[Rfam]
RNA sequence: UGCUUUACGCGUUCACUGCCGGCCUUCUGUGGUUUGUCAUUGCAUAAGGCACGCGGUGAAUGCCAAGAGCU
Numbered sequence: 001u002g003c004u005u006u007a008c009g010c011g012u013u014c015a016c017u018g019c020c021g022g023c024c025u026u027c028u029g030u031g032g033u034u035u036g037u038c039a040u041u042g043c044a045u046a047a048g049g050c051a052c053g054c055g056g057u058g059a060a061u062g063c064c065a066a067g068a069g070c071u
Base pairs, nucleotide, nucleotide: 003069004068005067006066009063010062011061012060013059014058015057016056018054019053023049024048025047026046028044029043030042
Overview
The family of this 71-nucleotide RNA from Notodromas monacha is "mir-124 microRNA precursor family". NCBI's taxonomy places the organism under Eukaryota, Bilateria, Panarthropoda, Podocopa, Notodromas. Rfam links the family to the GO terms RISC complex and miRNA-mediated post-transcriptional gene silencing. The family has 122 seed sequences and 2,215 matches in Rfam 15.1.